[Rfam]
RNA sequence: GUCCACAGCUACUGGUCUGCAGCUGCUGUCAAUCGUAGCAGCUGUGGCAUUCCACUGUGGGAAAGGAAGUGUUACACAGUUAAAUACCUCUUUCUUAUCCAAGAAGAAAGUGGGCAUGUGUGUGACAGACAGUG
Numbered sequence: 001g002u003c004c005a006c007a008g009c010u011a012c013u014g015g016u017c018u019g020c021a022g023c024u025g026c027u028g029u030c031a032a033u034c035g036u037a038g039c040a041g042c043u044g045u046g047g048c049a050u051u052c053c054a055c056u057g058u059g060g061g062a063a064a065g066g067a068a069g070u071g072u073u074a075c076a077c078a079g080u081u082a083a084a085u086a087c088c089u090c091u092u093u094c095u096u097a098u099c100c101a102a103g104a105a106g107a108a109a110g111u112g113g114g115c116a117u118g119u120g121u122g123u124g125a126c127a128g129a130c131a132g133u134g
Stems, first nucleotide, its partner, number of pairs: 003060004017047009074123005087114003090110006
Dot-bracket structure: ..((((..........(((((((((.............))))))))).........)))).............(((((........(((((((((.........)))))).)))....)))))...........
RNA: Small nucleolar RNA SNORA41
Organism: Cavia porcellus